[Rfam]
Nucleotides: 088
Stems, first nucleotide, its partner, number of pairs: 006083003010079005016073008025064010
Number, partner (000 for none) and nucleotide at each position: 001000a002000c003000u004000c005000u006083u007082c008081g009000u010079g011078u012077u013076c014075c015000c016073u017072c018071a019070a020069a021068g022067g023066c024000u025064u026063c027062c028061a029060g030059u031058a032057u033056u034055c035000a036000g037000c038000c039000a040000u041000a042000a043000c044000u045000u046000a047000g048000u049000u050000u051000a052000c053000u054000u055034g056033a057032a058031u059030g060029c061028u062027g063026g064025a065000u066023g067022u068021c069020u070019u071018u072017g073016a074000a075014g076013g077012a078011a079010c080000u081008u082007g083006a084000a085000a086000g087000c088000u
The family of this 88-nucleotide RNA sequence from Abrus precatorius is "MIR862_2 microRNA precursor family". Rfam 15.1 lists 22 matches to the family in 15 species. Its family is annotated with RISC complex and miRNA-mediated post-transcriptional gene silencing in the Gene Ontology. Lineage of the source: Eukaryota > Embryophyta > Spermatophyta > rosids > Abrus.